[Rfam]
RNA sequence: ACCGCAGACCGCCUUAUCGUCGUCUCGAUUCAUCGGGAGGGAGGAAAGUCCGGACACCAUAGAGAAGCAUAGCGGGUAACGCCCGUCGCUCGAUUUUUCGGGAAGGACAAGUGCAACAGAAAGUAUGUACAGGUAAUGCUGUAGUGAAACCAGGUAAACUCUAUGCGGUGAAAUUUCAAGUAUAUCAGUAUUUAAGGGUUUCUCGUCCGUUGCUGAAGGGUAGAAAGAUUGAUUCCGAGAGUAAUUUCGGAACUAGAUAAAUGAUAAGGGUCUCGUCUCAUAGGACGAGAUACAGAAUCCGGCUUAUAGGUCUGCAUUUUUU
Number, nucleotide and partner (000 for none) at each position: 001a318002c000003c000004g315005c314006a313007g312008a311009c310010c309011g307012c269013c268014u267015u266016a265017u264018c263019g000020u041021c040022g000023u038024c037025u036026c035027g034028a033029u000030u000031c000032a000033u028034c027035g026036g025037g024038a023039g000040g021041g020042a000043g000044g000045a000046a305047a304048g303049u000050c302051c301052g300053g299054a298055c170056a169057c168058c167059a000060u000061a000062g204063a203064g202065a201066a000067g166068c165069a164070u163071a162072g086073c085074g084075g083076g082077u000078a000079a000080c000081g000082c076083c075084c074085g073086u072087c105088g000089c102090u101091c100092g099093a098094u000095u000096u000097u000098u093099c092100g091101g090102g089103a000104a000105g087106g161107a160108c000109a000110a000111g159112u158113g155114c154115a000116a000117c000118a000119g000120a000121a000122a000123g000124u000125a000126u000127g000128u143129a142130c141131a140132g139133g000134u000135a000136a000137u000138g000139c132140u131141g130142u129143a128144g000145u000146g000147a000148a000149a000150c000151c000152a000153g000154g114155u113156a000157a000158a112159c111160u107161c106162u071163a070164u069165g068166c067167g058168g057169u056170g055171a000172a000173a000174u226175u225176u224177c223178a000179a000180g000181u000182a000183u000184a000185u216186c215187a214188g213189u212190a000191u000192u000193u000194a000195a000196g208197g207198g206199u205200u000201u065202c064203u063204c062205g199206u198207c197208c196209g000210u000211u000212g189213c188214u187215g186216a185217a000218g000219g000220g000221u000222a000223g177224a176225a175226a174227g000228a000229u000230u000231g000232a000233u252234u251235c250236c249237g248238a247239g246240a245241g000242u000243a000244a000245u240246u239247u238248c237249g236250g235251a234252a233253c000254u000255a000256g000257a000258u000259a000260a000261a000262u000263g018264a017265u016266a015267a014268g013269g012270g000271u000272c000273u000274c000275g000276u000277c000278u000279c000280a000281u000282a000283g000284g000285a000286c000287g000288a000289g000290a000291u000292a000293c000294a000295g000296a000297a000298u054299c053300c052301g051302g050303c048304u047305u046306a000307u011308a000309g010310g009311u008312c007313u006314g005315c004316a000317u000318u001319u000320u000321u000322u000
Bacterial RNase P class A: a 322-nucleotide RNA sequence from Flavobacterium urocaniciphilum. The family is grouped with related families in Rfam's "RNaseP clan". The organism belongs to Flavobacterium, within Bacteria.